[Rfam]
RNA sequence: CUCUGGAGAGAGGCCGAAAGGCCCGCCGAAGGGAUAGCGAUCUCAGGCGAAAGGACAGAG
Numbered sequence: 001c002u003c004u005g006g007a008g009a010g011a012g013g014c015c016g017a018a019a020g021g022c023c024c025g026c027c028g029a030a031g032g033g034a035u036a037g038c039g040a041u042c043u044c045a046g047g048c049g050a051a052a053g054g055a056c057a058g059a060g
Base pairs, nucleotide, nucleotide: 001060002059003058004057005056012023013022014021015020025048026047027046028044029043032042033041
A member of the RNA family "Glycine riboswitch aptamer" from Vannielia litorea, 60 nucleotides long. A search with the family's covariance model found it, with a score of 40 bits. NCBI's taxonomy places the organism under Bacteria, Pseudomonadati, Pseudomonadota, Rhodobacterales, Vannielia.